RNA sequence: GAAAUACGGGCCAGUCUCUUACGGCCAGCUCCCUUCGAAUCCCCCAGGAUGGGAACAUAGCAAGGGUAGUAGGUUGUAGCGGCGCGAUAGGAAUCGCUGGCCCACCC
Numbered sequence: 001g002a003a004a005u006a007c008g009g010g011c012c013a014g015u016c017u018c019u020u021a022c023g024g025c026c027a028g029c030u031c032c033c034u035u036c037g038a039a040u041c042c043c044c045c046a047g048g049a050u051g052g053g054a055a056c057a058u059a060g061c062a063a064g065g066g067u068a069g070u071a072g073g074u075u076g077u078a079g080c081g082g083c084g085c086g087a088u089a090g091g092a093a094u095c096g097c098u099g100g101c102c103c104a105c106c107c
Base pairs, nucleotide, nucleotide: 008103009102010101011100012099013098014097015096017092018091019090020089021088022086023085024083025082
RNA: Bacteroidales small SRP